[Rfam]
RNA sequence: AUCCCAGUGCACGGGCGUUUUCCUUCUCCGUGAAGCGAUAAGCUGAGAGAGGAAUUUUGCUAGUUGAAAACUAUAACAGACCACUCUUUUCUGGAUUUAUCCGGGAAAGGAAUUUUUGGAACCCUACUCUUUGU
Numbered sequence: 001a002u003c004c005c006a007g008u009g010c011a012c013g014g015g016c017g018u019u020u021u022c023c024u025u026c027u028c029c030g031u032g033a034a035g036c037g038a039u040a041a042g043c044u045g046a047g048a049g050a051g052g053a054a055u056u057u058u059g060c061u062a063g064u065u066g067a068a069a070a071c072u073a074u075a076a077c078a079g080a081c082c083a084c085u086c087u088u089u090u091c092u093g094g095a096u097u098u099a100u101c102c103g104g105g106a107a108a109g110g111a112a113u114u115u116u117u118g119g120a121a122c123c124c125u126a127c128u129c130u131u132u133g134u
Base pairs, nucleotide, nucleotide: 020054021053022052023051024050026049027048028047034044035043036042085110086109087108088107089106090105091104092103093102094101095100124133126131
RNA: U4 spliceosomal RNA
Organism: Cordyceps fumosorosea